RNA sequence: UUAUGAAGCAAAUUCCCGAUAGGAUUCACAGCAAUGUGAAGAUGCCUUGUAACCACAUAAAUCGUUUCUAGAACUCAGUAUGGGGGAAUUAAAUCACAUG
Numbered sequence: 001u002u003a004u005g006a007a008g009c010a011a012a013u014u015c016c017c018g019a020u021a022g023g024a025u026u027c028a029c030a031g032c033a034a035u036g037u038g039a040a041g042a043u044g045c046c047u048u049g050u051a052a053c054c055a056c057a058u059a060a061a062u063c064g065u066u067u068c069u070a071g072a073a074c075u076c077a078g079u080a081u082g083g084g085g086g087a088a089u090u091a092a093a094u095c096a097c098a099u100g
Base pairs, nucleotide, nucleotide: 013088014087015086016085017084021047022046023045025040026039027038028037029036053083054082